The family of this 152-nucleotide RNA is "cold-seep-1 RNA". It is one of the family's seed sequences. The base pairs follow the family's consensus structure, which is taken from published work.
RNA sequence: AGUCCCCUCCCAGGCUGCAUUGAUUUGCUAUGGCCGAGUGAGGGGGGCUUCACCUGAGGGUGAGGCCAUCCUAUCCACUUCUGGUGCCGGACACCGGUACUACUGGGACGGUCGCACUGCGGCGCCGCUCGAUGCCGGAGGUCUGGAGACGA
Numbered sequence: 001a002g003u004c005c006c007c008u009c010c011c012a013g014g015c016u017g018c019a020u021u022g023a024u025u026u027g028c029u030a031u032g033g034c035c036g037a038g039u040g041a042g043g044g045g046g047g048c049u050u051c052a053c054c055u056g057a058g059g060g061u062g063a064g065g066c067c068a069u070c071c072u073a074u075c076c077a078c079u080u081c082u083g084g085u086g087c088c089g090g091a092c093a094c095c096g097g098u099a100c101u102a103c104u105g106g107g108a109c110g111g112u113c114g115c116a117c118u119g120c121g122g123c124g125c126c127g128c129u130c131g132a133u134g135c136c137g138g139a140g141g142u143c144u145g146g147a148g149a150c151g152a
Base pairs, nucleotide, nucleotide: 002150003149004148006146007145014034015033017028018027019026046067047066048065050063051062052061053060054059094138095137096136097135098134099133105130106129107128113124114123115122